This 172-nucleotide RNA sequence from Oceanobacillus profundus belongs to the Rfam family "glmS glucosamine-6-phosphate activated ribozyme aptamer".
A search with the family's covariance model found it, with a score of 122 bits.
The organism belongs to Oceanobacillus, within Bacteria.
The literature on the family includes a 2006 paper in Biochemistry by Hampel and Tinsley, "Evidence for preorganization of the glmS ribozyme ligand binding pocket".
From the family's description: This entry contains a glucosamine-6-phosphate activated ribozyme that is found in the mRNA for GlmS. GlmS is an enzyme that uses fructose-6-phosphate and glutamine to generate glucosamine-6-phosphate. The ribozyme catalyses self cleavage of the glmS mRNA that is thought to regulate GlmS activity.
The family's consensus secondary structure is taken from published work.
It is annotated as a riboswitch.
RNA sequence: AAGUAACAAAAAGCGCCAGGACUAUUUUUCAGGUCGAAAUGGAAAAAUAGUUGACGAGGUGGAGGUUAUCGAAGUUUCGGCGGGUGCCUCCCGGUUGCACAUCUCAAUCGUUUCGCUUUAUCUAUAAAACAAUGAGGCGACUUAUUGGACAAAAGGAUAAAGCAAGAUGUCC
Number, nucleotide and partner (000 for none) at each position: 001a000002a000003g000004u000005a000006a000007c000008a000009a000010a000011a000012a000013g000014c000015g000016c000017c000018a000019g000020g052021a051022c050023u049024a048025u047026u046027u045028u000029u043030c000031a000032g000033g000034u000035c000036g000037a000038a000039a000040u000041g000042g000043a029044a000045a027046a026047a025048u024049a023050g022051u021052u020053g000054a000055c000056g000057a000058g000059g000060u000061g091062g090063a089064g088065g087066u000067u000068a000069u080070c079071g078072a077073a000074g000075u000076u000077u072078c071079g070080g069081c000082g000083g000084g000085u000086g000087c065088c064089u063090c062091c061092c110093g109094g108095u107096u106097g105098c000099a000100c000101a000102u000103c000104u000105c097106a096107a095108u094109c093110g092111u000112u000113u000114c000115g000116c162117u161118u160119u159120a158121u157122c156123u000124a000125u000126a000127a000128a000129a000130c147131a146132a145133u144134g143135a142136g141137g000138c000139g000140a000141c136142u135143u134144a133145u132146u131147g130148g000149a000150c000151a000152a000153a000154a000155g000156g122157a121158u120159a119160a118161a117162g116163c000164a000165a000166g000167a000168u000169g000170u000171c000172c000